[Rfam]
RNA: Small nucleolar RNA SNORA15
RNA sequence: GCAUGGAUGAAUUCUGCGUUGGCUUCUUCAGUAGCCAGUGCAGUCAGACACUAUGCUAGAGUAUAUUUCCUUUUUGCUUUUUCCUAAUGGUAUGCUUUGUGUAAAGUUAGCAUGUCCAUACAAGUAGGAUACAUGA
Numbered sequence: 001g002c003a004u005g006g007a008u009g010a011a012u013u014c015u016g017c018g019u020u021g022g023c024u025u026c027u028u029c030a031g032u033a034g035c036c037a038g039u040g041c042a043g044u045c046a047g048a049c050a051c052u053a054u055g056c057u058a059g060a061g062u063a064u065a066u067u068u069c070c071u072u073u074u075u076g077c078u079u080u081u082u083c084c085u086a087a088u089g090g091u092a093u094g095c096u097u098u099g100u101g102u103a104a105a106g107u108u109a110g111c112a113u114g115u116c117c118a119u120a121c122a123a124g125u126a127g128g129a130u131a132c133a134u135g136a
Stems, first nucleotide, its partner, number of pairs: 001056006014043006069128001071126001073124004085120002089116008